Background
A member of the RNA family "DUF805b RNA" from Pedobacter heparinus, 40 nucleotides long. The family's RNA type in Rfam is cis-regulatory element. The sequence is in the family's curated seed alignment.
[Rfam]
RNA sequence: CAGGUGGAAGCCGAAAAGCCUGAUUGAAACAGAGUAGGCA
Numbered sequence: 001c002a003g004g005u006g007g008a009a010g011c012c013g014a015a016a017a018g019c020c021u022g023a024u025u026g027a028a029a030c031a032g033a034g035u036a037g038g039c040a
Stems, first nucleotide, its partner, number of pairs: 002021004010039003
Dot-bracket structure: .((((....[[[.....))))...............]]].